[Rfam]
RNA sequence: CUCGUCCGUCCCGUGGACGCUCUGACCGUUCGGGUCGGGUCCCGGCUACCCUGACGGCGUGCGCCCGCUGUGGGAAGCCCCGCGGCAGGACGCAAAGCCGACAGCCGUCGCACCCACAGGGAGCCCCUUCAUG
Numbered sequence: 001c002u003c004g005u006c007c008g009u010c011c012c013g014u015g016g017a018c019g020c021u022c023u024g025a026c027c028g029u030u031c032g033g034g035u036c037g038g039g040u041c042c043c044g045g046c047u048a049c050c051c052u053g054a055c056g057g058c059g060u061g062c063g064c065c066c067g068c069u070g071u072g073g074g075a076a077g078c079c080c081c082g083c084g085g086c087a088g089g090a091c092g093c094a095a096a097g098c099c100g101a102c103a104g105c106c107g108u109c110g111c112a113c114c115c116a117c118a119g120g121g122a123g124c125c126c127c128u129u130c131a132u133g
Base pairs, nucleotide, nucleotide: 060094061093062092063091065088067086068085069084070083071082072081073080074079097111098110100109101108102107
Dot-bracket structure: ...........................................................((((.(.((((((((....)))))))).)..))))..((.(((....)))))......................
Shown here is a 133-nucleotide sequence from Streptomyces sp. WM6386, a member of the family "Streptomyces-metH RNA". NCBI's taxonomy places the organism under Bacteria, Bacillati, Actinomycetota, Streptomycetaceae, Streptomyces. Rfam classes the family as a small RNA.